[Rfam]
RNA: Bacterial small subunit ribosomal RNA, nucleotides 1 to 540
Organism: Campylobacter upsaliensis
RNA sequence: ACUAUGGAGAGUUUGAUCCUGGCUCAGAGUGAACGCUGGCGGCGUGCCUAAUACAUGCAAGUCGAACGAUGAAGCUUCUAGCUUGCUAGAAGUGAAUUAGUGGCGCACGGGUGAGUAAGGUAUAGUUAAUCUGCCCUACACUGGGGGACAACACUUAGAAAUGAGUGCUAAUACCCCAUACUCCUACCUAACAUAAGUUAGGUAGGGAAAGUUUUUCGGUGUAGGAUGAGACUAUAUAGUAUCAGCUAGUUGGUAAGGUAAAGGCUUACCAAGGCUAUGACGCUUAACUGGUCUGAGAGGAUGAUCAGUCACACUGGAACUGAGACACGGUCCAGACUCCUACGGGAGGCAGCAGUAGGGAAUAUUGCGCAAUGGGCGAAAGCCUGACGCAGCAACGCCGCGUGGAGGAUGACACUUUUCGGAGCGUAAACUCCUUUUCUUAGGGAAGAAUUCUGACGGUACCUAAGGAAUAAGCACCGGCUAACUCCGUGCCAGCAGCCGCGGUAAUACGGAGGGUGCAAGCGUUACUCGGAAUCACUG
Numbered sequence: 001a002c003u004a005u006g007g008a009g010a011g012u013u014u015g016a017u018c019c020u021g022g023c024u025c026a027g028a029g030u031g032a033a034c035g036c037u038g039g040c041g042g043c044g045u046g047c048c049u050a051a052u053a054c055a056u057g058c059a060a061g062u063c064g065a066a067c068g069a070u071g072a073a074g075c076u077u078c079u080a081g082c083u084u085g086c087u088a089g090a091a092g093u094g095a096a097u098u099a100g101u102g103g104c105g106c107a108c109g110g111g112u113g114a115g116u117a118a119g120g121u122a123u124a125g126u127u128a129a130u131c132u133g134c135c136c137u138a139c140a141c142u143g144g145g146g147g148a149c150a151a152c153a154c155u156u157a158g159a160a161a162u163g164a165g166u167g168c169u170a171a172u173a174c175c176c177c178a179u180a181c182u183c184c185u186a187c188c189u190a191a192c193a194u195a196a197g198u199u200a201g202g203u204a205g206g207g208a209a210a211g212u213u214u215u216u217c218g219g220u221g222u223a224g225g226a227u228g229a230g231a232c233u234a235u236a237u238a239g240u241a242u243c244a245g246c247u248a249g250u251u252g253g254u255a256a257g258g259u260a261a262a263g264g265c266u267u268a269c270c271a272a273g274g275c276u277a278u279g280a281c282g283c284u285u286a287a288c289u290g291g292u293c294u295g296a297g298a299g300g301a302u303g304a305u306c307a308g309u310c311a312c313a314c315u316g317g318a319a320c321u322g323a324g325a326c327a328c329g330g331u332c333c334a335g336a337c338u339c340c341u342a343c344g345g346g347a348g349g350c351a352g353c354a355g356u357a358g359g360g361a362a363u364a365u366u367g368c369g370c371a372a373u374g375g376g377c378g379a380a381a382g383c384c385u386g387a388c389g390c391a392g393c394a395a396c397g398c399c400g401c402g403u404g405g406a407g408g409a410u411g412a413c414a415c416u417u418u419u420c421g422g423a424g425c426g427u428a429a430a431c432u433c434c435u436u437u438u439c440u441u442a443g444g445g446a447a448g449a450a451u452u453c454u455g456a457c458g459g460u461a462c463c464u465a466a467g468g469a470a471u472a473a474g475c476a477c478c479g480g481c482u483a484a485c486u487c488c489g490u491g492c493c494a495g496c497a498g499c500c501g502c503g504g505u506a507a508u509a510c511g512g513a514g515g516g517u518g519c520a521a522g523c524g525u526u527a528c529u530c531g532g533a534a535u536c537a538c539u540g
Stems, first nucleotide, its partner, number of pairs: 009025005027530004032526006039401006045394002047359001052357003056354003061104003066101002069097002075092007111312003120237008130229002135225007143177004152167006183206010211217001238284003245275003250272008287309004291302004314335005337348004365391001367390003373386005404434004415424003439467006448457001474519005485514005495502002